[Rfam]
RNA: Small nucleolar RNA SNORA1
RNA sequence: AGCCUCAUUCUUAAUGAGCAGGGCACUGCUGAUCACAGUGUUCAAAAAAUUGUCACUGGGGCUAAACUGAGACACAGGUUAUGCUCACAUCACAGCAAAUUUAUUGCAGUGGUGACAAUGAGACCAGUAACAUUU
Numbered sequence: 001a002g003c004c005u006c007a008u009u010c011u012u013a014a015u016g017a018g019c020a021g022g023g024c025a026c027u028g029c030u031g032a033u034c035a036c037a038g039u040g041u042u043c044a045a046a047a048a049a050u051u052g053u054c055a056c057u058g059g060g061g062c063u064a065a066a067c068u069g070a071g072a073c074a075c076a077g078g079u080u081a082u083g084c085u086c087a088c089a090u091c092a093c094a095g096c097a098a099a100u101u102u103a104u105u106g107c108a109g110u111g112g113u114g115a116c117a118a119u120g121a122g123a124c125c126a127g128u129a130a131c132a133u134u135u
Base pairs, nucleotide, nucleotide: 002062003061004060006058007057021043022042023041024040025039026038074128075127077125078124088114089113090112091111092110093109